[Rfam]
About this RNA: This 112-nucleotide RNA from Clostridium sp. CAG:169 belongs to the Rfam family "TPP riboswitch aptamer (THI element)". Pairs were carried over by alignment from the consensus structure, which is taken from published work.

RNA sequence: CGAAAAAAGAAGGGGUGCUGCACGCAGCGGCUGAGAGAAGGAUAAAUCGGUCCUUUAACCCUGUGACCUGAUCCGGAUAAUGCCGGCGGAGGGAUUCUGUCAAUAGGAUUUG
Numbered sequence: 001c002g003a004a005a006a007a008a009g010a011a012g013g014g015g016u017g018c019u020g021c022a023c024g025c026a027g028c029g030g031c032u033g034a035g036a037g038a039a040g041g042a043u044a045a046a047u048c049g050g051u052c053c054u055u056u057a058a059c060c061c062u063g064u065g066a067c068c069u070g071a072u073c074c075g076g077a078u079a080a081u082g083c084c085g086g087c088g089g090a091g092g093g094a095u096u097c098u099g100u101c102a103a104u105a106g107g108a109u110u111u112g
Stems, first nucleotide, its partner, number of pairs: 006100001008098003011062004017031005038055005067092003073086004

A search with the family's covariance model found it, with a score of 73 bits. The source organism's lineage runs through Bacteria, Bacillota, Clostridia, Clostridiaceae and Clostridium.